[Rfam]
Shown here is a 70-nucleotide RNA from Phocoena sinus, a member of the family "Small nucleolar RNA SNORD82".

RNA sequence: CACGCGUGUGAUGAACAACCAAGAGACUUAAUACUGAAACCUGAUGUUAUGUUGCAAUGUUCUGAUGUGC
Dot-bracket structure: ((((.............................................................)))).

snoRNA U82 or Z25 is found in both humans and mice. The family's consensus secondary structure was predicted with PFOLD.